Shown here is an 80-nucleotide RNA from Algibacter pectinivorans, a member of the family "Flavo-1 RNA". The base pairs follow the family's consensus structure, which is taken from published work. NCBI's taxonomy places the organism under Bacteria, Bacteroidota, Flavobacteriia, Flavobacteriaceae, Algibacter.
RNA sequence: AUUUAGCCCUGAUAGAAGCGGCAUCCUUUUUUUGCUGCCAUAUAUGGCAAAAAAAGAUAUAGCGUAUAGCAGGAAAUAGC
Number, nucleotide and partner (000 for none) at each position: 001a000002u000003u000004u000005a000006g000007c000008c000009c072010u071011g070012a000013u068014a067015g000016a000017a000018g063019c062020g000021g000022c000023a058024u057025c056026c000027u000028u000029u053030u052031u051032u050033u049034g048035c047036u046037g000038c000039c000040a000041u000042a000043u000044a000045u000046g036047g035048c034049a033050a032051a031052a030053a029054a000055a000056g025057a024058u023059a000060u000061a000062g019063c018064g000065u000066a000067u014068a013069g000070c011071a010072g009073g000074a000075a000076a000077u000078a000079g000080c000